Small nucleolar RNA SNORA55: a 135-nucleotide RNA from Ochotona princeps. From the family's description: ACA55 is a member of the H/ACA class of snoRNA that guide the sites of modification of uridines to pseudouridines. Lineage of the source: Eukaryota > Opisthokonta > Chordata > Craniata > Ochotona. Rfam links the family to the GO terms RNA processing and nucleolus. Rfam classes the family as an H/ACA-box small nucleolar RNA.

[Rfam]
RNA sequence: GCACCUGAAUCUUUCCCAUUUCCUGCUGUUCUGUGCUGGUGUGGGGACGCACGGUGCCAUAGUGUGAGCAGAGUAAAUCCAGACAGGUUGUUUUCCAUUCAUCUUGGAACCUGUCCCUACAACUCUGCGACAUUU
Numbered sequence: 001g002c003a004c005c006u007g008a009a010u011c012u013u014u015c016c017c018a019u020u021u022c023c024u025g026c027u028g029u030u031c032u033g034u035g036c037u038g039g040u041g042u043g044g045g046g047a048c049g050c051a052c053g054g055u056g057c058c059a060u061a062g063u064g065u066g067a068g069c070a071g072a073g074u075a076a077a078u079c080c081a082g083a084c085a086g087g088u089u090g091u092u093u094u095c096c097a098u099u100c101a102u103c104u105u106g107g108a109a110c111c112u113g114u115c116c117c118u119a120c121a122a123c124u125c126u127g128c129g130a131c132a133u134u135u
Stems, first nucleotide, its partner, number of pairs: 001057005013047007021039002068128006082115007095107003